[Rfam]
RNA sequence: CUCAGGGAGUUCUGUACGCCGCUGAGUGGUAUUGCUCGCUUAGUGGAGCGAUUUACUCCCCAGAUUU
Numbered sequence: 001c002u003c004a005g006g007g008a009g010u011u012c013u014g015u016a017c018g019c020c021g022c023u024g025a026g027u028g029g030u031a032u033u034g035c036u037c038g039c040u041u042a043g044u045g046g047a048g049c050g051a052u053u054u055a056c057u058c059c060c061c062a063g064a065u066u067u
Stems, first nucleotide, its partner, number of pairs: 005060006019046010

Shown here is a 67-nucleotide RNA sequence from Trypanosoma brucei, a member of the family "Trypanosomatid snoRNA TB10Cs2H2". It is annotated as an H/ACA-box small nucleolar RNA. Pairs were carried over by alignment from the consensus structure, which was predicted with WAR. The literature on the family includes a 2005 paper in RNA by Liang et al., "A genome-wide analysis of C/D and H/ACA-like small nucleolar RNAs in Trypanosoma brucei reveals a trypanosome-specific pattern of rRNA modification".